[Rfam]
RNA sequence: CCCAGCAAGGAGCGUUGCGACAGGAUUCCACCCUGCCAGGCUUGCUGCGGCGAGCAGGGCUUCGUCGCGACGAGGUUCCUUGCAACCGCGCUCACGUUAC
Numbered sequence: 001c002c003c004a005g006c007a008a009g010g011a012g013c014g015u016u017g018c019g020a021c022a023g024g025a026u027u028c029c030a031c032c033c034u035g036c037c038a039g040g041c042u043u044g045c046u047g048c049g050g051c052g053a054g055c056a057g058g059g060c061u062u063c064g065u066c067g068c069g070a071c072g073a074g075g076u077u078c079c080u081u082g083c084a085a086c087c088g089c090g091c092u093c094a095c096g097u098u099a100c
Stems, first nucleotide, its partner, number of pairs: 003047006021035004026030001
Dot-bracket structure: ..((((((............((((.(...).))))......)))))).....................................................

SAH (S-adenosyl-L-homocysteine) riboswitch aptamer: a 100-nucleotide sequence from Herbaspirillum sp. YR522. For this family Rfam cites "Riboswitches that sense S-adenosylhomocysteine and activate genes involved in coenzyme recycling" (Wang et al., Mol Cell, 2008). Gene Ontology terms of the family: S-adenosylhomocysteine metabolic process and regulation of gene expression. It scores 52 bits against the family's covariance model.